[Rfam]
RNA sequence: GCUUGGGCCCCACGCAAUGGGAGAUACCGAACCGUGUCAGGAUGGGAACAUAGCAGCACUAAGGUAAACCUUUCAUGUGCCGUGGGUUAUCCUGGGUGGA
Numbered sequence: 001g002c003u004u005g006g007g008c009c010c011c012a013c014g015c016a017a018u019g020g021g022a023g024a025u026a027c028c029g030a031a032c033c034g035u036g037u038c039a040g041g042a043u044g045g046g047a048a049c050a051u052a053g054c055a056g057c058a059c060u061a062a063g064g065u066a067a068a069c070c071u072u073u074c075a076u077g078u079g080c081c082g083u084g085g086g087u088u089a090u091c092c093u094g095g096g097u098g099g100a
Stems, first nucleotide, its partner, number of pairs: 004094004009086006015077001017076006025066004034059004042051003